[Rfam]
RNA sequence: GGGAGAUUAGGAGUGGUAACUACUCGCCGUAUUUACUGCGAGAGGGGUGCCCGCCAUGCAUGUUACGACAACUGGGGCACUCAAAAUCAUUUUACCUUCUCAUCCC
Numbered sequence: 001g002g003g004a005g006a007u008u009a010g011g012a013g014u015g016g017u018a019a020c021u022a023c024u025c026g027c028c029g030u031a032u033u034u035a036c037u038g039c040g041a042g043a044g045g046g047g048u049g050c051c052c053g054c055c056a057u058g059c060a061u062g063u064u065a066c067g068a069c070a071a072c073u074g075g076g077g078c079a080c081u082c083a084a085a086a087u088c089a090u091u092u093u094a095c096c097u098u099c100u101c102a103u104c105c106c
Stems, first nucleotide, its partner, number of pairs: 001106004015096004023042005045082005050076002062072002